[Rfam]
RNA sequence: UCGGGUCUUUUUGCAGUCUGGGCUUGCUGUUCCUCCCACUGGCACUCAGGAAGCCCUUACCCCAAAAAGUAUCCA
Numbered sequence: 001u002c003g004g005g006u007c008u009u010u011u012u013g014c015a016g017u018c019u020g021g022g023c024u025u026g027c028u029g030u031u032c033c034u035c036c037c038a039c040u041g042g043c044a045c046u047c048a049g050g051a052a053g054c055c056c057u058u059a060c061c062c063c064a065a066a067a068a069g070u071a072u073c074c075a
Stems, first nucleotide, its partner, number of pairs: 007069007016060002020056004025051001027049002
This 75-nucleotide RNA from Podargus strigoides belongs to the Rfam family "mir-129 microRNA precursor family". For this family Rfam cites "Identification of tissue-specific microRNAs from mouse" (Lagos-Quintana et al., Curr Biol, 2002). The organism belongs to Podargus, within Eukaryota. Gene Ontology terms of the family: RISC complex, gene silencing by miRNA and long-term synaptic potentiation.